[Rfam]
RNA sequence: GAGUGAUGGCCAUGGCAUGGAAGAAGGUGAGACUUGCAUGAAUCGUGAAUCAAAACCUCCAUGAUUAUCACUGCAAGUCGUACCUUUUUCCUAGCCAUGAUAAUCACUG
Numbered sequence: 001g002a003g004u005g006a007u008g009g010c011c012a013u014g015g016c017a018u019g020g021a022a023g024a025a026g027g028u029g030a031g032a033c034u035u036g037c038a039u040g041a042a043u044c045g046u047g048a049a050u051c052a053a054a055a056c057c058u059c060c061a062u063g064a065u066u067a068u069c070a071c072u073g074c075a076a077g078u079c080g081u082a083c084c085u086u087u088u089u090c091c092u093a094g095c096c097a098u099g100a101u102a103a104u105c106a107c108u109g
Base pairs, nucleotide, nucleotide: 002108003107004106005105006104007103011099012098013097014096015095016094019091020090021089022088023087024086025085026084027083028082029081031079032078033077034076035075036074037073041066042065043064044063045062046061047060

The record is a 109-nucleotide sequence from Arabidopsis thaliana, which matches "MIR5020 microRNA precursor family" in Rfam. The sequence is in the family's curated seed alignment. Gene Ontology terms of the family: RISC complex and miRNA-mediated post-transcriptional gene silencing.